[Rfam]
Nucleotides: 184
Base pairs, nucleotide, nucleotide: 008177009176010175011174017080018079019078020077021076022075023074024073025072034064035063036062037061038060040058084116085115086114087113088112089111090110091109092108093107095105117143118142120140121139122138123137124136125135126134127133145169146168147167148166149165150164151163
Number, partner (000 for none) and nucleotide at each position: 001000a002000c003000a004000a005000c006000a007000g008177g009176u010175a011174g012000a013000g014000g015000c016000u017080g018079c019078a020077g021076g022075g023074c024073u025072u026000a027000a028000u029000a030000g031000u032000a033000c034064u035063a036062u037061a038060c039000a040058g041000g042000a043000a044000g045000u046000u047000g048000a049000c050000g051000c052000u053000u054000a055000u056000g057000a058040u059000c060038g061037u062036a063035u064034a065000c066000g067000a068000a069000a070000g071000g072025a073024a074023g075022u076021u077020u078019u079018g080017c081000c082000g083000a084116a085115g086114c087113u088112a089111g090110a091109u092108a093107u094000g095105g096000u097000u098000c099000g100000u101000c102000a103000a104000a105095c106000g107093a108092u109091a110090u111089u112088u113087a114086g115085u116084u117143g118142g119000g120140g121139u122138u123137a124136u125135u126134c127133u128000a129000a130000a131000a132000a133127a134126g135125a136124a137123u138122a139121a140120c141000a142118c143117u144000g145169u146168c147167a148166u149165u150164u151163a152000u153000a154000u155000g156000a157000a158000a159000a160000a161000u162000a163151u164150a165149a166148a167147u168146g169145g170000u171000g172000a173000g174011c175010u176009a177008c178000a179000a180000a181000g182000g183000a184000u
This 184-nucleotide sequence from Psychrobacillus soli belongs to the Rfam family "Lysine riboswitch aptamer".
Lineage of the source: Bacteria > Bacillati > Caryophanales > Bacillaceae > Psychrobacillus.
The base pairs follow the family's consensus structure, which is taken from published work.